Rfam assigns this 104-nucleotide RNA from Yersinia intermedia to the family "RprA RNA". A reference for the family is Majdalani et al. (2001), "Regulation of RpoS by a novel small RNA: the characterization of RprA", Mol Microbiol. Translational regulation of the stationary phase sigma factor RpoS is mediated by the formation of a double-stranded RNA stem-loop structure in the upstream region of the rpoS messenger RNA, occluding the translation initiation site.
[Rfam]
RNA sequence: AUUUAAAUAACUCAUUUUCAAGUGAGUUAUUUAAAUAUCUGUAAUCGAAAUACGUAUUGCUGUGUGUAGUCUUUGCCUGUCAUCUAAGACGGGCUUUUUUUUAC
Numbered sequence: 001a002u003u004u005a006a007a008u009a010a011c012u013c014a015u016u017u018u019c020a021a022g023u024g025a026g027u028u029a030u031u032u033a034a035a036u037a038u039c040u041g042u043a044a045u046c047g048a049a050a051u052a053c054g055u056a057u058u059g060c061u062g063u064g065u066g067u068a069g070u071c072u073u074u075g076c077c078u079g080u081c082a083u084c085u086a087a088g089a090c091g092g093g094c095u096u097u098u099u100u101u102u103a104c
Base pairs, nucleotide, nucleotide: 002022003021004020032043033042058066059065060064075094076093077092078091079090080089081088